Shown here is a 304-nucleotide RNA sequence from Hibiscus syriacus, a member of the family "Plant signal recognition particle RNA". The organism belongs to Hibiscus, within Eukaryota. It is annotated as a non-coding RNA gene. A search with the family's covariance model found it, with a score of 141 bits. Gene Ontology terms of the family: SRP-dependent cotranslational protein targeting to membrane, signal sequence recognition and signal recognition particle, endoplasmic reticulum targeting.

RNA sequence: UCCAAGCUUGAUAAGUAAGCUUGUGACCCAUGUGGGGGCAUUGAGAUGCUGGAACACGAUUUUAACUCAUUGAGUCAAGUUUAAUAUGAGUCGAAUUAGGUUUUCCCAUUUCAAACAAAGAGUAGAGAUAUAGGAUUUGAGCGAAAGCUUGGGCCUCAUGAUUCCUAAAGGAAAAGGUAAUGUGUGAGGCUAGUUCAACAGAGCAGUGAUCACCUCUCGCUCUUUGUGGUGGAAAGAUUACAAGCCUAAUCCACAUGAACUCAACAUGACACUAUGAGUUGACCAAACUUGGACUGUAAUCUUU
Number, nucleotide and partner (000 for none) at each position: 001u000002c038003c037004a022005a021006g020007c019008u018009u017010g016011a000012u000013a000014a000015g000016u010017a009018a008019g007020c006021u005022u004023g000024u000025g000026a000027c036028c035029c034030a000031u000032g000033u000034g029035g028036g027037g003038g002039c000040a000041u000042u000043g303044a302045g301046a300047u299048g000049c000050u296051g295052g294053a000054a000055c291056a290057c000058g288059a000060u286061u000062u282063u281064a280065a279066c278067u277068c276069a275070u274071u000072g272073a000074g270075u269076c268077a000078a261079g260080u259081u258082u257083a256084a000085u000086a000087u000088g251089a000090g250091u249092c000093g000094a000095a000096u000097u248098a247099g246100g245101u244102u243103u242104u000105c000106c236107c000108a000109u234110u233111u232112c231113a230114a000115a227116c226117a225118a224119a223120g222121a221122g220123u219124a000125g164126a163127g162128a000129u160130a159131u158132a000133g156134g155135a000136u153137u152138u151139g150140a149141g148142c147143g000144a000145a000146a000147g142148c141149u140150u139151g138152g137153g136154c000155c134156u133157c000158a131159u130160g129161a000162u127163u126164c125165c170166u000167a000168a000169a000170g165171g218172a217173a000174a215175a000176g213177g000178u000179a000180a000181u000182g000183u208184g207185u206186g000187a000188g000189g000190c201191u200192a000193g000194u000195u000196c000197a000198a000199c000200a191201g190202a000203g000204c000205a000206g185207u184208g183209a000210u000211c000212a000213c176214c000215u174216c000217u172218c171219g123220c122221u121222c120223u119224u118225u117226g116227u115228g000229g000230u113231g112232g111233a110234a109235a000236g106237a000238u000239u000240a000241c000242a103243a102244g101245c100246c099247u098248a097249a091250u090251c088252c000253a000254c000255a000256u083257g082258a081259a080260c079261u078262c000263a000264a000265c000266a000267u000268g076269a075270c074271a000272c072273u000274a070275u069276g068277a067278g066279u065280u064281g063282a062283c000284c000285a000286a060287a000288c058289u000290u056291g055292g000293a000294c052295u051296g050297u000298a000299a047300u046301c045302u044303u043304u000